[Rfam]
RNA sequence: GGGGACCUUCGGGGCCCUACACUCGAAAUAGGCAGGCCUUCGGGUUUGCCGCACGUUAAACGGAAGACAGAAA
Numbered sequence: 001g002g003g004g005a006c007c008u009u010c011g012g013g014g015c016c017c018u019a020c021a022c023u024c025g026a027a028a029u030a031g032g033c034a035g036g037c038c039u040u041c042g043g044g045u046u047u048g049c050c051g052c053a054c055g056u057u058a059a060a061c062g063g064a065a066g067a068c069a070g071a072a073a
Stems, first nucleotide, its partner, number of pairs: 001018004006014003031050007
The family of this 73-nucleotide RNA from Thalassococcus halodurans is "L2-Alphaproteobacteria ribosomal protein leader". Pairs were carried over by alignment from the consensus structure, which is taken from published work. Taxonomically the source falls in Thalassococcus (Bacteria, Pseudomonadati, Rhodobacterales, Roseobacteraceae). The match comes from Rfam's covariance-model search (55 bits). It is annotated as a cis-regulatory leader.